[Rfam]
RNA sequence: ACUGGACGAGUGGCAAGAUGCUGGCAUAGCCGCUCACUCUCAGAGGCGGCUGUGACUGCAUAGGGCCACCCGUCUUGU
Number, nucleotide and partner (000 for none) at each position: 001a000002c000003u000004g075005g074006a073007c072008g071009a000010g069011u068012g067013g066014c065015a000016a000017g000018a061019u060020g059021c000022u000023g056024g000025c054026a053027u052028a051029g050030c049031c000032g000033c000034u000035c000036a000037c000038u000039c000040u000041c000042a000043g000044a000045g000046g000047c000048g000049g030050c029051u028052g027053u026054g025055a000056c023057u000058g000059c020060a019061u018062a000063g000064g000065g014066c013067c012068a011069c010070c000071c008072g007073u006074c005075u004076u000077g000078u000
RNA: mir-31 microRNA precursor family
Organism: Petromyzon marinus